[Rfam]
RNA sequence: GGACCACCCGUCAGGGUUAAGGCCAUGCGGACAGCCGGGUCCACUGCCGA
Numbered sequence: 001g002g003a004c005c006a007c008c009c010g011u012c013a014g015g016g017u018u019a020a021g022g023c024c025a026u027g028c029g030g031a032c033a034g035c036c037g038g039g040u041c042c043a044c045u046g047c048c049g050a
Stems, first nucleotide, its partner, number of pairs: 001042005006017004
Shown here is a 50-nucleotide RNA, a member of the family "Streptococcus sRNA SpF59 (ldcC RNA)". The family's consensus secondary structure was predicted with mfold.